[Rfam]
RNA sequence: ACUCAACGCCAAUUCUUUAAAAUGGGUGAAUCGUCGCUACUAUAGCAUGCUGCCUUGAGCAGAUCCUAGAACAGCUUGUUAGCCCAAAACUUGUCAAUACGAGUUU
Numbered sequence: 001a002c003u004c005a006a007c008g009c010c011a012a013u014u015c016u017u018u019a020a021a022a023u024g025g026g027u028g029a030a031u032c033g034u035c036g037c038u039a040c041u042a043u044a045g046c047a048u049g050c051u052g053c054c055u056u057g058a059g060c061a062g063a064u065c066c067u068a069g070a071a072c073a074g075c076u077u078g079u080u081a082g083c084c085c086a087a088a089a090c091u092u093g094u095c096a097a098u099a100c101g102a103g104u105u106u
Base pairs, nucleotide, nucleotide: 023086024085025084026083027082036075037074038073043068044067045066050062051061052060053059
Description
The family of this 106-nucleotide RNA from Flavobacterium sp. AG291 is "6S-Flavo RNA". Pairs were carried over by alignment from the consensus structure, which is taken from published work. The family's RNA type in Rfam is small RNA.